[Rfam]
RNA sequence: GGAAAAUGGUUAAUAUUAGCCCUUUAUAUCAGUAAUGAUAUAAAUGCACCUCCUGAAUUGCUGGGAAACCCUAAAGCUGUUUUAACGACAACAUAACUAGAAAUAGUCAGUGUGAACGUUUAAAAAUAAAACAGAUGAAACAAUGGGUGAUCAGCAGCCGAGAUUCUGUUAAAUGAAUCAGGUUCAACGACUAUUCCAAACGGAAGUACACUCAAGCGAGUGGAAGUAGGAGGUAUCCUGUAGUCAAAUCUCUAAAUUAUUACAGGAUAAAGAUAUAGUCUGGUCUUACAUGAAAGUGUAAG
Numbered sequence: 001g002g003a004a005a006a007u008g009g010u011u012a013a014u015a016u017u018a019g020c021c022c023u024u025u026a027u028a029u030c031a032g033u034a035a036u037g038a039u040a041u042a043a044a045u046g047c048a049c050c051u052c053c054u055g056a057a058u059u060g061c062u063g064g065g066a067a068a069c070c071c072u073a074a075a076g077c078u079g080u081u082u083u084a085a086c087g088a089c090a091a092c093a094u095a096a097c098u099a100g101a102a103a104u105a106g107u108c109a110g111u112g113u114g115a116a117c118g119u120u121u122a123a124a125a126a127u128a129a130a131a132c133a134g135a136u137g138a139a140a141c142a143a144u145g146g147g148u149g150a151u152c153a154g155c156a157g158c159c160g161a162g163a164u165u166c167u168g169u170u171a172a173a174u175g176a177a178u179c180a181g182g183u184u185c186a187a188c189g190a191c192u193a194u195u196c197c198a199a200a201c202g203g204a205a206g207u208a209c210a211c212u213c214a215a216g217c218g219a220g221u222g223g224a225a226g227u228a229g230g231a232g233g234u235a236u237c238c239u240g241u242a243g244u245c246a247a248a249u250c251u252c253u254a255a256a257u258u259a260u261u262a263c264a265g266g267a268u269a270a271a272g273a274u275a276u277a278g279u280c281u282g283g284u285c286u287u288a289c290a291u292g293a294a295a296g297u298g299u300a301a302g
Stems, first nucleotide, its partner, number of pairs: 005024002008021005028039003048234005054228002059156006069147003157183002163178004187281001189280005236267009287300005
RNA: Group I catalytic intron
Organism: Lyngbya sp. PCC 8106